[Rfam]
RNA sequence: UAGUAGUGCUAGGGGUGCCUUAUGGCUGAGAGAAGUUUAUAACUUUAACCCUUCGAACCUGAUGCGGGUAAAACCGACGUAGGAAAGCUGUUUAGAUAUUAG
Numbered sequence: 001u002a003g004u005a006g007u008g009c010u011a012g013g014g015g016u017g018c019c020u021u022a023u024g025g026c027u028g029a030g031a032g033a034a035g036u037u038u039a040u041a042a043c044u045u046u047a048a049c050c051c052u053u054c055g056a057a058c059c060u061g062a063u064g065c066g067g068g069u070a071a072a073a074c075c076g077a078c079g080u081a082g083g084a085a086a087g088c089u090g091u092u093u094a095g096a097u098a099u100u101a102g
Stems, first nucleotide, its partner, number of pairs: 008088003011052004017026003033045005058083004065076003
This 102-nucleotide RNA sequence from Clostridiales bacterium oral taxon 876 belongs to the Rfam family "TPP riboswitch aptamer (THI element)". Pairs were carried over by alignment from the consensus structure, which is taken from published work. Rfam's curators write: Vitamin B(1) in its active form thiamin pyrophosphate (TPP) is an essential coenzyme that is synthesised by coupling of pyrimidine and thiazole moieties in bacteria. The previously detected thiamin-regulatory element, thi box was extended, resulting in a new, highly conserved RNA secondary structure, the THI element, which is widely distributed in eubacteria and also occurs in some archaea. Analysis of operon structures identified a large number of new candidate thiamin-regulated genes, mostly transporters, in various prokaryotic organisms. The match comes from Rfam's covariance-model search (74 bits).